[Rfam]
RNA: Clostridiales-1 RNA
RNA sequence: UGAUACCAGGGUCAAAAGGUCGAAAAUCCGAUGCGAGCUUGCUCGCAAGAGGAUUUUUGAACUUGGGACCCGCCAAAAACAUGAAUAAGUAGCCAUUUUUCGAAGAAAAAUGAGCGGAUUAUGAAUGUUUUUGAGGAUUGCGAGAGUACGAAGUACGGAGCAAUCCGGUAUCA
Numbered sequence: 001u002g003a004u005a006c007c008a009g010g011g012u013c014a015a016a017a018g019g020u021c022g023a024a025a026a027u028c029c030g031a032u033g034c035g036a037g038c039u040u041g042c043u044c045g046c047a048a049g050a051g052g053a054u055u056u057u058u059g060a061a062c063u064u065g066g067g068a069c070c071c072g073c074c075a076a077a078a079a080c081a082u083g084a085a086u087a088a089g090u091a092g093c094c095a096u097u098u099u100u101c102g103a104a105g106a107a108a109a110a111u112g113a114g115c116g117g118a119u120u121a122u123g124a125a126u127g128u129u130u131u132u133g134a135g136g137a138u139u140g141c142g143a144g145a146g147u148a149c150g151a152a153g154u155a156c157g158g159a160g161c162a163a164u165c166c167g168g169u170a171u172c173a
Stems, first nucleotide, its partner, number of pairs: 001173007010070004017063002020060010032048001033046005075132008085122004092115002094112008135166007146156004